[Rfam]
Nucleotides: 181
Stems, first nucleotide, its partner, number of pairs: 013091001015089001029084001030082002035077001036075003040071002043068004047063001050060003107174005120160006127154004132145002134142002
Number, partner (000 for none) and nucleotide at each position: 001000g002000g003000u004000g005000g006000c007000c008000g009000g010000u011000g012000u013091g014000c015089g016000c017000g018000g019000u020000g021000u022000c023000c024000g025000u026000c027000c028000g029084u030082g031081u032000u033000c034000a035077g036075c037074g038073c039000c040071g041070c042000c043068g044067u045066c046065c047063g048000u049000c050060u051059g052058u053000g054000u055000c056000u057000u058052a059051c060050a061000g062000u063047c064000u065046g066045g067044a068043c069000a070041g071040c072000a073038g074037u075036g076000c077035u078000c079000a080000c081031g082030c083000c084029a085000c086000a087000c088000c089015c090000a091013c092000a093000g094000c095000c096000a097000c098000a099000g100000a101000g102000a103000c104000a105000c106000u107174g108173g109172a110171g111170a112000u113000c114000a115000u116000a117000g118000u119000a120160c121159u122158g123157g124156u125155c126000c127154a128153g129152u130151g131000a132145u133144g134142u135141c136000u137000u138000a139000c140000u141135g142134a143000c144133u145132g146000c147000c148000c149000a150000c151130c152129a153128c154127u155125g156124a157123c158122c159121a160120g161000c162000c163000u164000c165000c166000a167000a168000a169000c170111u171110c172109u173108c174107c175000u176000a177000c178000a179000a180000g181000c